Rfam assigns this 79-nucleotide RNA from Rhizobium sp. BG4 to the family "ZMP/ZTP riboswitch aptamer (pfl RNA motif)". The base pairs follow the family's consensus structure, which is taken from published work. Its family is annotated with regulation of purine nucleotide biosynthetic process and one-carbon metabolic process in the Gene Ontology.

RNA sequence: UAGGCUCCGCGUGACUGGCGAUUGAGAUGGAUGACCAUCGGGGAGCGCGGGCUUUACGCCGCUCGCCUAGGCACCUUCG
Numbered sequence: 001u002a003g004g005c006u007c008c009g010c011g012u013g014a015c016u017g018g019c020g021a022u023u024g025a026g027a028u029g030g031a032u033g034a035c036c037a038u039c040g041g042g043g044a045g046c047g048c049g050g051g052c053u054u055u056a057c058g059c060c061g062c063u064c065g066c067c068u069a070g071g072c073a074c075c076u077u078c079g
Stems, first nucleotide, its partner, number of pairs: 003054002006051007015042002017067005027038004058072003